[Rfam]
RNA sequence: UGUUCACGCUGGGGGUGCGGACGGUCCGCACGAUCGCUUCGCUGAGAUCACACCCCUUGAACCUGAUCCGGUUCGUACCGGCGAGAGGGAAGCCAAAGGAGUCACUA
Numbered sequence: 001u002g003u004u005c006a007c008g009c010u011g012g013g014g015g016u017g018c019g020g021a022c023g024g025u026c027c028g029c030a031c032g033a034u035c036g037c038u039u040c041g042c043u044g045a046g047a048u049c050a051c052a053c054c055c056c057u058u059g060a061a062c063c064u065g066a067u068c069c070g071g072u073u074c075g076u077a078c079c080g081g082c083g084a085g086a087g088g089g090a091a092g093c094c095a096a097a098g099g100a101g102u103c104a105c106u107a
Stems, first nucleotide, its partner, number of pairs: 008093003011056004016050001017042005062088003068081004
RNA: TPP riboswitch aptamer (THI element)